[Rfam]
RNA sequence: CAAUCGCAAUGUUAAUCGCCGUAGACAGUAGGUGCAAUGCUUAAACGCGCAAGCGGCCUACCGAGGUAAAGUCUGCUCAUGUUUAUUGGGCAUGCCUUUCCUCUGCGGGAAGGCAUGUUUUUUGUUGGAGUA
Number, nucleotide and partner (000 for none) at each position: 001c000002a000003a000004u000005c000006g000007c000008a000009a000010u000011g000012u000013u000014a000015a000016u000017c000018g000019c000020c000021g000022u000023a000024g000025a000026c000027a000028g061029u060030a059031g058032g057033u056034g040035c039036a000037a000038u000039g035040c034041u000042u000043a000044a000045a000046c000047g000048c000049g000050c000051a000052a000053g000054c000055g000056g033057c032058c031059u030060a029061c028062c000063g000064a000065g000066g000067u000068a000069a000070a000071g000072u000073c000074u000075g000076c000077u000078c000079a000080u000081g000082u000083u000084u000085a000086u000087u000088g000089g000090g000091c117092a116093u115094g114095c113096c112097u111098u110099u109100c108101c000102u000103c000104u000105g000106c000107g000108g100109g099110a098111a097112g096113g095114c094115a093116u092117g091118u000119u000120u000121u000122u000123u000124g000125u000126u000127g000128g000129a000130g000131u000132a000
A member of the RNA family "Ribosomal protein L10 leader" from a Peptococcaceae bacterium, 132 nucleotides long. Rfam classes the family as a cis-regulatory leader. A reference for the family is Iben and Draper (2008), "Specific interactions of the L10(L12)4 ribosomal protein complex with mRNA, rRNA, and L11", Biochemistry. From the family's description: This family is a putative r-protein leader autoregulatory structure found in B. subtilis and other low-GC Gram-positive bacteria. The base pairs follow the family's consensus structure, which was predicted with CMfinder. It scores 61 bits against the family's covariance model. Taxonomically the source falls in Peptococcaceae (Bacteria, Bacillati, Bacillota, Eubacteriales).